[Rfam]
RNA: mir-44 microRNA precursor family
Organism: Mesorhabditis spiculigera
RNA sequence: GCCUUGCCCAUCUGGAUGUUCUCCUUAGUCAUACGAUCAAUGAGGCUAUGACUAGAGACACAUUCAGCUAGGCGAUGUU
Numbered sequence: 001g002c003c004u005u006g007c008c009c010a011u012c013u014g015g016a017u018g019u020u021c022u023c024c025u026u027a028g029u030c031a032u033a034c035g036a037u038c039a040a041u042g043a044g045g046c047u048a049u050g051a052c053u054a055g056a057g058a059c060a061c062a063u064u065c066a067g068c069u070a071g072g073c074g075a076u077g078u079u
Stems, first nucleotide, its partner, number of pairs: 005074004012067008022058002027053007